A member of the RNA family "MIR159 microRNA precursor family" from Gossypium barbadense, 202 nucleotides long. The base pairs follow the family's consensus structure, which was predicted with WAR. Lineage of the source: Eukaryota > Tracheophyta > Magnoliopsida > Pentapetalae > Gossypium. For this family Rfam cites "Novel and stress-regulated microRNAs and other small RNAs from Arabidopsis" (Sunkar and Zhu, Plant Cell, 2004).
[Rfam]
RNA sequence: AAGAGAAAGAAGGAGCUCCCUUCAGUCCAAGCACGGAGAAAGGGGGAUGCAAAACCAUCUCCCGCAUCAUUCACACAAUCACAGUAGCAAAAUCGCCAAUAUCCGUCUUCUACUGAGUGCUUGAAUGAAUGAGUCGGCAGCUAGUCCAACCCCCUUGUUCCUAUCCGUAAGUGGGCUGAUGGAAGCUCUCUCUUCCCAUUUC
Numbered sequence: 001a002a003g004a005g006a007a008a009g010a011a012g013g014a015g016c017u018c019c020c021u022u023c024a025g026u027c028c029a030a031g032c033a034c035g036g037a038g039a040a041a042g043g044g045g046g047a048u049g050c051a052a053a054a055c056c057a058u059c060u061c062c063c064g065c066a067u068c069a070u071u072c073a074c075a076c077a078a079u080c081a082c083a084g085u086a087g088c089a090a091a092a093u094c095g096c097c098a099a100u101a102u103c104c105g106u107c108u109u110c111u112a113c114u115g116a117g118u119g120c121u122u123g124a125a126u127g128a129a130u131g132a133g134u135c136g137g138c139a140g141c142u143a144g145u146c147c148a149a150c151c152c153c154c155u156u157g158u159u160c161c162u163a164u165c166c167g168u169a170a171g172u173g174g175g176c177u178g179a180u181g182g183a184a185g186c187u188c189u190c191u192c193u194u195c196c197c198a199u200u201u202c
Stems, first nucleotide, its partner, number of pairs: 013188005019182002023178007036165001059140002062137003068131004076123001